Shown here is a 102-nucleotide sequence from Clostridium cellulovorans, a member of the family "Purine riboswitch aptamer". The family's consensus secondary structure is taken from published work. Its family is annotated with purine nucleobase biosynthetic process in the Gene Ontology.
[Rfam]
RNA sequence: AGAUAAAGAUAAUAUUUGGCUCAUAUAACCUUGAUAAUAUGGUUCAGGGGUUUCUAUCAGAUUGCCGUAAAUAAUCUGACUAUGGGUAUAACGGGUAUUUUU
Numbered sequence: 001a002g003a004u005a006a007a008g009a010u011a012a013u014a015u016u017u018g019g020c021u022c023a024u025a026u027a028a029c030c031u032u033g034a035u036a037a038u039a040u041g042g043u044u045c046a047g048g049g050g051u052u053u054c055u056a057u058c059a060g061a062u063u064g065c066c067g068u069a070a071a072u073a074a075u076c077u078g079a080c081u082a083u084g085g086g087u088a089u090a091a092c093g094g095g096u097a098u099u100u101u102u
Base pairs, nucleotide, nucleotide: 019087020086021085022084023083024082025081029049030048031047032046033045034044058078059077060076061075062074063073064072